RNA sequence: UGCAAAUGAUGCUUAUUCUCACGAUGGUCUUCCAAGUCUCACUGAGGCUCUGACGAUACUGCCUUAUGGCUUUACUGAUGCAACAUG
Numbered sequence: 001u002g003c004a005a006a007u008g009a010u011g012c013u014u015a016u017u018c019u020c021a022c023g024a025u026g027g028u029c030u031u032c033c034a035a036g037u038c039u040c041a042c043u044g045a046g047g048c049u050c051u052g053a054c055g056a057u058a059c060u061g062c063c064u065u066a067u068g069g070c071u072u073u074a075c076u077g078a079u080g081c082a083a084c085a086u087g
Stems, first nucleotide, its partner, number of pairs: 001082004

This 87-nucleotide RNA from Leptobrachium leishanense belongs to the Rfam family "Small nucleolar RNA SNORD35".
The family has 8 seed sequences and 1,842 matches in Rfam 15.1.
For this family Rfam cites "Intron-encoded, antisense small nucleolar RNAs: the characterization of nine novel species points to their direct role as guides for the 2'-O-ribose methylation of rRNAs" (Nicoloso et al., J Mol Biol, 1996).
Rfam classes the family as a C/D-box small nucleolar RNA.
The match comes from Rfam's covariance-model search (74 bits).
The family's consensus secondary structure was predicted with PFOLD.